A member of the RNA family "Clostridiales-1 RNA" from Butyrivibrio sp. CB08, 154 nucleotides long. A search with the family's covariance model found it, with a score of 98 bits. It is annotated as a small RNA. Pairs were carried over by alignment from the consensus structure, which is taken from published work.
[Rfam]
RNA sequence: UGAUAAAUGGAUUUAAACUGAAGCAGUCUGUUGUGCUAGCACAAAACAGACUGCUUUAGCUUGAAGACAUAACGGACAUGAGGAAGUAGGCCGACAGGCCGGAUUCCGAAUGCCCGCAGCAUGACGGGAGCGAAGCGGAGUCAUGCGUUUAUUA
Numbered sequence: 001u002g003a004u005a006a007a008u009g010g011a012u013u014u015a016a017a018c019u020g021a022a023g024c025a026g027u028c029u030g031u032u033g034u035g036c037u038a039g040c041a042c043a044a045a046a047c048a049g050a051c052u053g054c055u056u057u058a059g060c061u062u063g064a065a066g067a068c069a070u071a072a073c074g075g076a077c078a079u080g081a082g083g084a085a086g087u088a089g090g091c092c093g094a095c096a097g098g099c100c101g102g103a104u105u106c107c108g109a110a111u112g113c114c115c116g117c118a119g120c121a122u123g124a125c126g127g128g129a130g131c132g133a134a135g136c137g138g139a140g141u142c143a144u145g146c147g148u149u150u151a152u153u154a
Stems, first nucleotide, its partner, number of pairs: 001154007010068001012066002016061001018059014032043004073116003077112003082107004089100004119146007130136002